[Rfam]
RNA sequence: UGCACUCGGGUAAGUCCCAUACGACCAGCUCCCUUUGAAUCCCCCAGGGCUUGACCGCAGCAAGGGUAGAAGGUUGUAGCGGUGCGAUAUGGUAAGCUUGCCCUUUU
Numbered sequence: 001u002g003c004a005c006u007c008g009g010g011u012a013a014g015u016c017c018c019a020u021a022c023g024a025c026c027a028g029c030u031c032c033c034u035u036u037g038a039a040u041c042c043c044c045c046a047g048g049g050c051u052u053g054a055c056c057g058c059a060g061c062a063a064g065g066g067u068a069g070a071a072g073g074u075u076g077u078a079g080c081g082g083u084g085c086g087a088u089a090u091g092g093u094a095a096g097c098u099u100g101c102c103c104u105u106u107u
Base pairs, nucleotide, nucleotide: 008103009102010101011100012099013098014097015096017092018091019090020089021088022086023085024083025082